[Rfam]
RNA sequence: CCGCUAGAUGAUGAAGACAUGGUUCAGUACAUUCUUACUGGACUUGAUGAAGAAUUCAAAGAUCUUGUUUCUACUAUUUGCACAGGGCAGAACCGAUUUCUGUUGGAGAAUUAUACUAUCAGCUCGUCAAUUUCGAAA
Number, nucleotide and partner (000 for none) at each position: 001c000002c000003g000004c000005u136006a000007g134008a133009u000010g000011a000012u000013g000014a000015a000016g000017a000018c000019a000020u000021g000022g000023u000024u000025c000026a000027g000028u000029a000030c000031a000032u000033u000034c000035u000036u000037a000038c000039u000040g000041g000042a000043c000044u000045u000046g000047a000048u000049g000050a000051a000052g000053a000054a000055u000056u000057c000058a000059a000060a000061g000062a000063u000064c000065u000066u000067g000068u000069u000070u000071c000072u000073a000074c000075u000076a000077u000078u000079u000080g000081c000082a000083c000084a000085g000086g000087g000088c000089a000090g000091a000092a000093c106094c105095g104096a103097u102098u000099u000100c000101u000102g097103u096104u095105g094106g093107a000108g000109a000110a000111u000112u000113a000114u000115a000116c000117u000118a000119u000120c000121a000122g000123c000124u000125c000126g000127u000128c000129a000130a000131u000132u000133u008134c007135g000136a005137a000138a000
RNA: Small nucleolar RNA Z247
Organism: Oryza meyeriana